The record is a 109-nucleotide RNA sequence from Nostoc sp. FACHB-888, which matches "Guanidine-I riboswitch aptamer" in Rfam. Lineage of the source: Bacteria > Bacillati > Cyanobacteriota > Cyanophyceae > Nostoc. Rfam describes the family as follows. This family represents a conserved RNA structure found upstream of the ykkC and yxkD genes in Bacillus subtilis and related genes in other bacteria. The function of this family is unclear although it has been suggested that it may function to switch on efflux pumps and detoxification systems in response to harmful environmental molecules.
[Rfam]
RNA sequence: AGGAUGAGCUUCUAGGGUUCCGAUCGCGCCAAGAGUGAGAUGACUGGUCCAAGAGAAGCAGCCGACUCUGAGCGAGUCGGUCACACGGCGGGAAAAAAGCCCGGGAGAG
Number, nucleotide and partner (000 for none) at each position: 001a000002g000003g000004a000005u000006g000007a000008g059009c058010u057011u056012c055013u000014a000015g050016g049017g000018u000019u000020c047021c046022g044023a041024u040025c039026g000027c037028g036029c000030c000031a000032a000033g000034a000035g000036u028037g027038a000039g025040a024041u023042g000043a000044c022045u000046g021047g020048u000049c016050c015051a000052a000053g000054a000055g012056a011057a010058g009059c008060a000061g082062c080063c079064g078065a077066c076067u075068c074069u000070g000071a000072g000073c000074g068075a067076g066077u065078c064079g063080g062081u000082c061083a000084c104085a000086c107087g000088g000089c000090g102091g101092g100093a000094a000095a000096a000097a000098a000099g000100c092101c091102c090103g000104g084105g000106a000107g086108a000109g000